The record is a 79-nucleotide RNA from Medicago truncatula, which matches "MIR5269 microRNA precursor family" in Rfam.
[Rfam]
RNA sequence: UUGGUUUAAAUUAUUGUGGGUCUACACUUUGAAAAUAUAACUCAUACAAAGUGGUGAGACAUAAAUUAAUUUCAUCCAA
Numbered sequence: 001u002u003g004g005u006u007u008a009a010a011u012u013a014u015u016g017u018g019g020g021u022c023u024a025c026a027c028u029u030u031g032a033a034a035a036u037a038u039a040a041c042u043c044a045u046a047c048a049a050a051g052u053g054g055u056g057a058g059a060c061a062u063a064a065a066u067u068a069a070u071u072u073c074a075u076c077c078a079a
Stems, first nucleotide, its partner, number of pairs: 001079004006074001008072006015065001017063002023056002025053007
Gene Ontology terms of the family: miRNA-mediated post-transcriptional gene silencing and RISC complex. A search with the family's covariance model found it, with a score of 78 bits. NCBI's taxonomy places the organism under Eukaryota, Viridiplantae, Tracheophyta, Hologalegina, Medicago.